[Rfam]
This 287-nucleotide RNA from Callosobruchus maculatus belongs to the Rfam family "Nuclear RNase P".
Its Rfam clan is "RNaseP clan".
Gene Ontology terms of the family: ribonuclease P complex, tRNA processing and ribonuclease P activity.
From the family's description: Ribonuclease P (RNase P) is a ubiquitous endoribonuclease, found in archaea, bacteria and eukarya as well as chloroplasts and mitochondria.
The base pairs follow the family's consensus structure, which is taken from published work.

RNA sequence: UCCGCAACAAUUCUGCACCUGGAGCACACAGACAGUGUACCUGGUUACACACUGAUUGCAACGGGAAGGUCUGAGAAAGGCCACAAAACCCUCUAGCCGGGGGCCCAGUUAUAUCUGGGAUGGGGGAACCAGAAACAUGCUCUGGGGGGCACGAAUAGCCCAGUAUUGCUCUUUAAGAGCAUAGGUGAUGUGUCUUCCAGGGUUGGAAACUUCCAUGGCCGGCUGUUUUAGUUCAAUGUGCGGACUGGGUUUUACCCAGAACUCAAUUCAGACUAGUCUGUGGCGGA
Numbered sequence: 001u002c003c004g005c006a007a008c009a010a011u012u013c014u015g016c017a018c019c020u021g022g023a024g025c026a027c028a029c030a031g032a033c034a035g036u037g038u039a040c041c042u043g044g045u046u047a048c049a050c051a052c053u054g055a056u057u058g059c060a061a062c063g064g065g066a067a068g069g070u071c072u073g074a075g076a077a078a079g080g081c082c083a084c085a086a087a088a089c090c091c092u093c094u095a096g097c098c099g100g101g102g103g104c105c106c107a108g109u110u111a112u113a114u115c116u117g118g119g120a121u122g123g124g125g126g127a128a129c130c131a132g133a134a135a136c137a138u139g140c141u142c143u144g145g146g147g148g149g150c151a152c153g154a155a156u157a158g159c160c161c162a163g164u165a166u167u168g169c170u171c172u173u174u175a176a177g178a179g180c181a182u183a184g185g186u187g188a189u190g191u192g193u194c195u196u197c198c199a200g201g202g203u204u205g206g207a208a209a210c211u212u213c214c215a216u217g218g219c220c221g222g223c224u225g226u227u228u229u230a231g232u233u234c235a236a237u238g239u240g241c242g243g244a245c246u247g248g249g250u251u252u253u254a255c256c257c258a259g260a261a262c263u264c265a266a267u268u269c270a271g272a273c274u275a276g277u278c279u280g281u282g283g284c285g286g287a
Stems, first nucleotide, its partner, number of pairs: 001287004007281003012244007021062001024059002035050005040044001071271005079220004089103005104119005120216007140202003245259005